The record is a 106-nucleotide sequence from Sphingomonas sp. TF3, which matches "Glycine riboswitch aptamer" in Rfam.
Taxonomically the source falls in Sphingomonas (Bacteria, Pseudomonadota, Alphaproteobacteria, Sphingomonadaceae).
Rfam's curators write: This family represents the bacterial glycine riboswitch.
A reference for the family is Mandal et al. (2004), "A glycine-dependent riboswitch that uses cooperative binding to control gene expression", Science.
RNA sequence: UAGGCACGCGCGGGAGAGUGUCCCGGUCCUCCGGUAGCGGAUGGCCGGGGCCGCCGAAGGAGCAACCGCCCCGGAAUCUCUCAGGCAACCGGACCGCGCGGGCCAU
Number, nucleotide and partner (000 for none) at each position: 001u000002a000003g000004g000005c000006a000007c100008g099009c098010g097011c096012g095013g094014g000015a000016g000017a000018g000019u000020g051021u050022c049023c048024c047025g046026g045027u044028c043029c000030u000031c000032c000033g000034g000035u000036a000037g000038c000039g000040g000041a000042u000043g028044g027045c026046c025047g024048g023049g022050g021051c020052c000053g086054c085055c084056g082057a081058a000059g000060g080061a079062g078063c000064a000065a000066c074067c073068g000069c000070c000071c000072c000073g067074g066075a000076a000077u000078c062079u061080c060081u057082c056083a000084g055085g054086c053087a000088a000089c000090c000091g000092g000093a000094c013095c012096g011097c010098g009099c008100g007101g000102g000103c000104c000105a000106u000